[Rfam]
RNA sequence: AAAUCCUUUAAUACUGUCCUGUGAGGCAGGCAAGGAGAAUCGCAGUAAAUAAAUAAGCAGUCCUGUUUUUUGCUGUACUGUAAGUUGUGAAAUCUCCUUGUAUCAGGGAGAUUUUUUCUAU
Numbered sequence: 001a002a003a004u005c006c007u008u009u010a011a012u013a014c015u016g017u018c019c020u021g022u023g024a025g026g027c028a029g030g031c032a033a034g035g036a037g038a039a040u041c042g043c044a045g046u047a048a049a050u051a052a053a054u055a056a057g058c059a060g061u062c063c064u065g066u067u068u069u070u071u072g073c074u075g076u077a078c079u080g081u082a083a084g085u086u087g088u089g090a091a092a093u094c095u096c097c098u099u100g101u102a103u104c105a106g107g108g109a110g111a112u113u114u115u116u117u118c119u120a121u
Stems, first nucleotide, its partner, number of pairs: 004036005014029005053085002057081005063075001065073002089115012
Background: The record is a 121-nucleotide RNA sequence from Streptococcus pantholopis, which matches "PyrR binding site" in Rfam. The family's RNA type in Rfam is cis-regulatory element. Rfam describes the family as follows. This family represents the PyrR binding site and terminator structure. This RNA structure is found upstream of a variety of genes involved in pyrimidine biosynthesis and transport. The alignment also includes a portion of the antiterminator structure. On this family, see Bonner et al., Nucleic Acids Res 2001: "Molecular recognition of pyr mRNA by the Bacillus subtilis attenuation regulatory protein PyrR".